[Rfam]
RNA sequence: CUUGUGCGGUGCAGUCACUAUCACACCUUAGGUGUGUCAGUAUUUCCAGGUCACCAAGGUGUGUUAGUGAUGACACUGCGCAAAG
Numbered sequence: 001c002u003u004g005u006g007c008g009g010u011g012c013a014g015u016c017a018c019u020a021u022c023a024c025a026c027c028u029u030a031g032g033u034g035u036g037u038c039a040g041u042a043u044u045u046c047c048a049g050g051u052c053a054c055c056a057a058g059g060u061g062u063g064u065u066a067g068u069g070a071u072g073a074c075a076c077u078g079c080g081c082a083a084a085g
Base pairs, nucleotide, nucleotide: 001085002084003083004081005080006079007078008077009076010075011074014071015070016069017068018067019066020065022063023062024061025060026059027058028057029056031055032054033053034052
Dot-bracket structure: (((((((((((..(((((((.((((((((.((((.................)))))))))))).)))))))..)))))))).)))
Rfam assigns this 85-nucleotide sequence from Patiria miniata to the family "mir-2011 microRNA precursor family". Rfam links the family to the GO terms RISC complex and miRNA-mediated post-transcriptional gene silencing. Taxonomically the source falls in Patiria (Eukaryota, Bilateria, Deuterostomia, Asterozoa). Pairs were carried over by alignment from the consensus structure, which was predicted with RNAalifold. The sequence is in the family's curated seed alignment.